[Rfam]
RNA: DUF3800-VIII RNA
Nucleotides: 077
Base pairs, nucleotide, nucleotide: 001077003075004074005073006072007071008070009069010068011067012066014063015062016061020040022038023037024036025035026034027033028032
Number, partner (000 for none) and nucleotide at each position: 001077a002000u003075g004074a005073c006072c007071c008070u009069g010068c011067u012066a013000c014063c015062g016061c017000g018000a019000a020040g021000g022038c023037u024036u025035a026034a027033g028032u029000u030000c031000c032028a033027c034026u035025u036024a037023a038022g039000g040020u041000a042000u043000u044000g045000c046000u047000c048000c049000c050000u051000u052000g053000g054000g055000a056000g057000a058000a059000u060000a061016g062015c063014g064000a065000c066012u067011a068010g069009c070008g071007g072006g073005g074004u075003u076000u077001u